[Rfam]
Nucleotides: 082
Base pairs, nucleotide, nucleotide: 002081003080004079005078
Number, partner (000 for none) and nucleotide at each position: 001000u002081a003080g004079c005078c006000u007000g008000a009000a010000a011000u012000g013000a014000u015000g016000u017000u018000a019000u020000g021000a022000a023000u024000u025000c026000a027000u028000g029000u030000c031000u032000c033000u034000u035000c036000u037000c038000u039000g040000a041000a042000g043000u044000g045000u046000a047000u048000c049000g050000u051000g052000g053000a054000g055000a056000c057000a058000g059000c060000u061000g062000g063000a064000u065000g066000u067000g068000u069000u070000u071000c072000u073000g074000a075000u076000c077000a078005g079004g080003c081002u082000u